[Rfam]
RNA sequence: UAUUAGAAAUUUCAUUAAUUUCUACUGUAAAAAAUUAGUGUAGUUAUCUAAAUAAUUAGAUAGUUACGCGUGAAGUGUUACAUGCACUUCAUGUUGAUGUACAUAGAUGAAUUUUUAACAGUAAAAAUAGAUUGUAUUUUUAAUA
Numbered sequence: 001u002a003u004u005a006g007a008a009a010u011u012u013c014a015u016u017a018a019u020u021u022c023u024a025c026u027g028u029a030a031a032a033a034a035u036u037a038g039u040g041u042a043g044u045u046a047u048c049u050a051a052a053u054a055a056u057u058a059g060a061u062a063g064u065u066a067c068g069c070g071u072g073a074a075g076u077g078u079u080a081c082a083u084g085c086a087c088u089u090c091a092u093g094u095u096g097a098u099g100u101a102c103a104u105a106g107a108u109g110a111a112u113u114u115u116u117a118a119c120a121g122u123a124a125a126a127a128u129a130g131a132u133u134g135u136a137u138u139u140u141u142a143a144u145a
Base pairs, nucleotide, nucleotide: 002144003143004142005141006140007139008138009137010136012134014132015131016130018128019127020126021125023123024122025121026120028118030116031115032114033113
Background: This 145-nucleotide RNA from Gossypium lobatum belongs to the Rfam family "MIR7502 microRNA precursor family". The source organism's lineage runs through Eukaryota, Streptophyta, Tracheophyta, Euphyllophyta and Gossypium. It scores 75 bits against the family's covariance model.